[Rfam]
RNA: Small nucleolar RNA SNORA72
RNA sequence: CUGUGAAUAUUGUACUAUUCUGAUUCUGUAUUAAAACAAGACAGGAUAUACUUUCAUCAUAUUAAGAUCUUGCAUGUAUUGUCAGAUCUAAUUUUUUUAAACUAGUUUUAUAAGUGCUAGUGAUGAUC
Numbered sequence: 001c002u003g004u005g006a007a008u009a010u011u012g013u014a015c016u017a018u019u020c021u022g023a024u025u026c027u028g029u030a031u032u033a034a035a036a037c038a039a040g041a042c043a044g045g046a047u048a049u050a051c052u053u054u055c056a057u058c059a060u061a062u063u064a065a066g067a068u069c070u071u072g073c074a075u076g077u078a079u080u081g082u083c084a085g086a087u088c089u090a091a092u093u094u095u096u097u098u099a100a101a102c103u104a105g106u107u108u109u110a111u112a113a114g115u116g117c118u119a120g121u122g123a124u125g126a127u128c
Stems, first nucleotide, its partner, number of pairs: 003057003015044002018041002021038002024035002067121002072117002082105001084103002087100001089099003